[Rfam]
RNA sequence: GUGCCAGUCAGGCUCUUGGCUGGAUUCCAGCUCUCAGCUAGUUCCAGGCUCUAGCCAGGAACUGACUACAUC
Numbered sequence: 001g002u003g004c005c006a007g008u009c010a011g012g013c014u015c016u017u018g019g020c021u022g023g024a025u026u027c028c029a030g031c032u033c034u035c036a037g038c039u040a041g042u043u044c045c046a047g048g049c050u051c052u053a054g055c056c057a058g059g060a061a062c063u064g065a066c067u068a069c070a071u072c
Stems, first nucleotide, its partner, number of pairs: 007066003011062001014059001017057008027041001029039003

This 72-nucleotide RNA sequence from Rattus norvegicus belongs to the Rfam family "mir-344 microRNA precursor family". The organism belongs to Rattus, within Eukaryota. A search with the family's covariance model found it, with a score of 59 bits. A reference for the family is Chiang et al. (2010), "Mammalian microRNAs: experimental evaluation of novel and previously annotated genes", Genes Dev.